RNA sequence: AGCUCGACAGGGUCGACCGCGCGGGUCACCACCAGGUAAUCACGCAGCGCGGUGCUGUGCCUGGCCUC
Number, nucleotide and partner (000 for none) at each position: 001a000002g000003c000004u063005c000006g061007a000008c059009a058010g000011g030012g029013u028014c000015g027016a026017c025018c024019g000020c000021g000022c000023g000024g018025g017026u016027c015028a013029c012030c011031a000032c000033c000034a000035g056036g055037u054038a053039a000040u052041c051042a000043c049044g048045c000046a000047g000048c044049g043050c000051g041052g040053u038054g037055c036056u035057g000058u009059g008060c000061c006062u000063g004064g000065c000066c000067u000068c000
Shown here is a 68-nucleotide sequence from Mycobacterium parmense, a member of the family "ASdes TB sRNA". The match comes from Rfam's covariance-model search (78 bits). The base pairs follow the family's consensus structure, which is taken from published work. A reference for the family is Arnvig and Young (2009), "Identification of small RNAs in Mycobacterium tuberculosis", Mol Microbiol. The organism belongs to Mycobacterium simiae complex, within Bacteria.